[Rfam]
The family of this 582-nucleotide part of an RNA from Bihospites bacati is "Eukaryotic small subunit ribosomal RNA".
The sequence is in the family's curated seed alignment.
RNA sequence: GGGGAAGUGCGGUCGCAAGGCUGAAACUUAAAGGAUUUGACGGGACGACACCACAAGGCGUGGAUGCUGCGGCUUAAUUUGACUCAACGCGGGGAACCUUACCAGGUCAGGACGCGCGGCGGAUUGACAGAUUAAAAGCUCUUUCUUGAUUGCGUGUAUGGUGGUGCAUGGCCGCUCCUAGUUCGUAGGGUGACCCGUCUGGUUAACUCCGAUAACGAACGAGAUCCCGACCUCUCAUUGUCUGCAGGAUCGCUUUGUAGGUUCGACCUUGACUCUCGAGUCCUUGGGAAGGCUGAGAUGGCUGUAGAAAAGUCAGAGGGACGGCGCAUGUCGACAAUGCGCGGAAGGGCGGGCCAAUAGCAGGUCUGUGAUGCUCCUAGAUGUCCUGGGCUGCACGCGGCAUACAAUGAUCGUGGUAACAAGCUUGGUUUGUUUGAGCUCCUUACAAGACAUUGUUGGGGAACCUUUUCAAUCACGAUCGUAGUUGGGAUAGAUGCUUGCAACUAUUUGCCUUGAACCAGGAAUGCCUUGUAGGCGCACUUCAGCAAGGUGCACCGAAUACGUCCCUGCCGUUUGUACACA
Numbered sequence: 001g002g003g004g005a006a007g008u009g010c011g012g013u014c015g016c017a018a019g020g021c022u023g024a025a026a027c028u029u030a031a032a033g034g035a036u037u038u039g040a041c042g043g044g045a046c047g048a049c050a051c052c053a054c055a056a057g058g059c060g061u062g063g064a065u066g067c068u069g070c071g072g073c074u075u076a077a078u079u080u081g082a083c084u085c086a087a088c089g090c091g092g093g094g095a096a097c098c099u100u101a102c103c104a105g106g107u108c109a110g111g112a113c114g115c116g117c118g119g120c121g122g123a124u125u126g127a128c129a130g131a132u133u134a135a136a137a138g139c140u141c142u143u144u145c146u147u148g149a150u151u152g153c154g155u156g157u158a159u160g161g162u163g164g165u166g167c168a169u170g171g172c173c174g175c176u177c178c179u180a181g182u183u184c185g186u187a188g189g190g191u192g193a194c195c196c197g198u199c200u201g202g203u204u205a206a207c208u209c210c211g212a213u214a215a216c217g218a219a220c221g222a223g224a225u226c227c228c229g230a231c232c233u234c235u236c237a238u239u240g241u242c243u244g245c246a247g248g249a250u251c252g253c254u255u256u257g258u259a260g261g262u263u264c265g266a267c268c269u270u271g272a273c274u275c276u277c278g279a280g281u282c283c284u285u286g287g288g289a290a291g292g293c294u295g296a297g298a299u300g301g302c303u304g305u306a307g308a309a310a311a312g313u314c315a316g317a318g319g320g321a322c323g324g325c326g327c328a329u330g331u332c333g334a335c336a337a338u339g340c341g342c343g344g345a346a347g348g349g350c351g352g353g354c355c356a357a358u359a360g361c362a363g364g365u366c367u368g369u370g371a372u373g374c375u376c377c378u379a380g381a382u383g384u385c386c387u388g389g390g391c392u393g394c395a396c397g398c399g400g401c402a403u404a405c406a407a408u409g410a411u412c413g414u415g416g417u418a419a420c421a422a423g424c425u426u427g428g429u430u431u432g433u434u435u436g437a438g439c440u441c442c443u444u445a446c447a448a449g450a451c452a453u454u455g456u457u458g459g460g461g462a463a464c465c466u467u468u469u470c471a472a473u474c475a476c477g478a479u480c481g482u483a484g485u486u487g488g489g490a491u492a493g494a495u496g497c498u499u500g501c502a503a504c505u506a507u508u509u510g511c512c513u514u515g516a517a518c519c520a521g522g523a524a525u526g527c528c529u530u531g532u533a534g535g536c537g538c539a540c541u542u543c544a545g546c547a548a549g550g551u552g553c554a555c556c557g558a559a560u561a562c563g564u565c566c567c568u569g570c571c572g573u574u575u576g577u578a579c580a581c582a
Base pairs, nucleotide, nucleotide: 002029003028004027011022012021013020014019038580039579040577041576042575044574045573046572047571049569050568053564054563057528058527059526060525061524062405064403065402066401067400068399069398070397071396072394073393078093079092080091081090102389103388104387105386106385108383113156114155115154116153117152126145127144129142130141131140160377161376163375164374165373166372169371170369171365172364173363174361175360176359181220182219183218184217185216186215188195189194200211201210202209226353227352228351229350231319232318233317234316235315237313241309243307322344324342325341326340327339328338329337409480410479411478412477413476414475415474421467422466423465441460442459445456446455447454448453487518492513493512495510496509534556535555537553538552539551540550541549

For this family Rfam cites "The comparative RNA web (CRW) site: an online database of comparative sequence and structure information for ribosomal, intron, and other RNAs" (Cannone et al., BMC Bioinformatics, 2002).